The family of this 90-nucleotide sequence from Solanum commersonii is "Small nucleolar RNA snoR8a".
The source organism's lineage runs through Eukaryota, Streptophytina, Tracheophyta, asterids and Solanum.
It scores 100 bits against the family's covariance model.
Gene Ontology terms of the family: RNA processing and nucleolus.
The literature on the family includes a 2001 paper in RNA by Brown et al., "Multiple snoRNA gene clusters from Arabidopsis".
[Rfam]
RNA sequence: GUUGUUGCGAUGAUUAUAAAAAAUUCCUCGUACUGAAUGCUAUUGCCAUGGCAUGACAGACUCUUUUACACCCAUAGAAUAUGAGCAACA
Numbered sequence: 001g002u003u004g005u006u007g008c009g010a011u012g013a014u015u016a017u018a019a020a021a022a023a024u025u026c027c028u029c030g031u032a033c034u035g036a037a038u039g040c041u042a043u044u045g046c047c048a049u050g051g052c053a054u055g056a057c058a059g060a061c062u063c064u065u066u067u068a069c070a071c072c073c074a075u076a077g078a079a080u081a082u083g084a085g086c087a088a089c090a
Base pairs, nucleotide, nucleotide: 003090004089006087007086